[Rfam]
RNA sequence: UUACCGGCGGUCUCUAAUUCGCUUGGUGCAGGUCGGGAACUACUUCGCUUCGCUUGUUAAAAAUGGGAGUUUCAUUUAUCACUUAUAUAUAAAUAAAAAUAAAAAUAUAUAGAUAUAGAUAGCCAGGUGGCGUUUUGGGAUUGGUUAUGGGGCGAAUUGGAUCCCGCCUUGCAUCAACUGAAUCGGAGACCGCGGUGAAG
Numbered sequence: 001u002u003a004c005c006g007g008c009g010g011u012c013u014c015u016a017a018u019u020c021g022c023u024u025g026g027u028g029c030a031g032g033u034c035g036g037g038a039a040c041u042a043c044u045u046c047g048c049u050u051c052g053c054u055u056g057u058u059a060a061a062a063a064u065g066g067g068a069g070u071u072u073c074a075u076u077u078a079u080c081a082c083u084u085a086u087a088u089a090u091a092a093a094u095a096a097a098a099a100u101a102a103a104a105a106u107a108u109a110u111a112g113a114u115a116u117a118g119a120u121a122g123c124c125a126g127g128u129g130g131c132g133u134u135u136u137g138g139g140a141u142u143g144g145u146u147a148u149g150g151g152g153c154g155a156a157u158u159g160g161a162u163c164c165c166g167c168c169u170u171g172c173a174u175c176a177a178c179u180g181a182a183u184c185g186g187a188g189a190c191c192g193c194g195g196u197g198a199a200g
Stems, first nucleotide, its partner, number of pairs: 013187002017183004023177010034166005040160002
Dot-bracket structure: ............((..((((..((((((((((.(((((.((.....................................................................................................................)).))))).))))))))))..))))..)).............
This 200-nucleotide RNA sequence from Quercus lobata belongs to the Rfam family "MIR168 microRNA precursor family". The match comes from Rfam's covariance-model search (104 bits). NCBI's taxonomy places the organism under Eukaryota, Embryophyta, Magnoliopsida, Fagaceae, Quercus. A reference for the family is Reinhart et al. (2002), "MicroRNAs in plants", Genes Dev.